Shown here is a 132-nucleotide RNA from Amazona guildingii, a member of the family "Small nucleolar RNA SNORA15". By type it is an H/ACA-box small nucleolar RNA. Rfam's curators write: ACA15 is a member of the H/ACA class of snoRNA that guide the sites of modification of uridines to pseudouridines. For this family Rfam cites "RNomics: an experimental approach that identifies 201 candidates for novel, small, non-messenger RNAs in mouse" (Huttenhofer et al., EMBO J, 2001).
[Rfam]
RNA sequence: GCAUGGAUGAAUUCUGCACUAGCUUUCCUCAGUAGCUAAUGCAGUCAGACACUAUGCCAGAAUAAAUUCCUUUUUCACACUGCCUGGUAUGCUUUUUACAUGAGUGGGCAUGCCUUUGGAAGUGGAAUACAU
Numbered sequence: 001g002c003a004u005g006g007a008u009g010a011a012u013u014c015u016g017c018a019c020u021a022g023c024u025u026u027c028c029u030c031a032g033u034a035g036c037u038a039a040u041g042c043a044g045u046c047a048g049a050c051a052c053u054a055u056g057c058c059a060g061a062a063u064a065a066a067u068u069c070c071u072u073u074u075u076c077a078c079a080c081u082g083c084c085u086g087g088u089a090u091g092c093u094u095u096u097u098a099c100a101u102g103a104g105u106g107g108g109c110a111u112g113c114c115u116u117u118g119g120a121a122g123u124g125g126a127a128u129a130c131a132u
Stems, first nucleotide, its partner, number of pairs: 001057006014044005070125002072122006086114009